[Rfam]
RNA sequence: GCCGUUCAAUUAUGACAAUCAGAGCCUUAGAAAAGACUCGUAGAACAAUUUUUGGAAACCUUUCUCGUAAGAGAAGGUUA
Numbered sequence: 001g002c003c004g005u006u007c008a009a010u011u012a013u014g015a016c017a018a019u020c021a022g023a024g025c026c027u028u029a030g031a032a033a034a035g036a037c038u039c040g041u042a043g044a045a046c047a048a049u050u051u052u053u054g055g056a057a058a059c060c061u062u063u064c065u066c067g068u069a070a071g072a073g074a075a076g077g078u079u080a
Stems, first nucleotide, its partner, number of pairs: 022039003026035003057079006064073003